[Rfam]
The record is a 98-nucleotide sequence from Thalictrum thalictroides, which matches "MIR2275 microRNA precursor family" in Rfam. A search with the family's covariance model found it, with a score of 62 bits. NCBI's taxonomy places the organism under Eukaryota, Streptophyta, Embryophyta, Spermatophyta, Thalictrum. Gene Ontology terms of the family: RISC complex and miRNA-mediated post-transcriptional gene silencing.
RNA sequence: AAGUUGAAUGUGAGAAUUGGAGGAAAUCGAACCUAUUGCCGUGAUAUUUUUCUUUUCUGCAUUAGGUUCAGUUUUCUCCAACAUCUCAUGUUCAGCCU
Number, nucleotide and partner (000 for none) at each position: 001a000002a000003g000004u095005u094006g093007a092008a091009u000010g000011u088012g087013a086014g085015a000016a000017u081018u080019g079020g078021a077022g000023g075024a074025a073026a072027u071028c000029g069030a068031a000032c066033c065034u064035a063036u000037u000038g000039c000040c000041g000042u000043g000044a000045u000046a000047u000048u000049u000050u000051u000052c000053u000054u000055u000056u000057c000058u000059g000060c000061a000062u000063u035064a034065g033066g032067u000068u030069c029070a000071g027072u026073u025074u024075u023076c000077u021078c020079c019080a018081a017082c000083a000084u000085c014086u013087c012088a011089u000090g000091u008092u007093c006094a005095g004096c000097c000098u000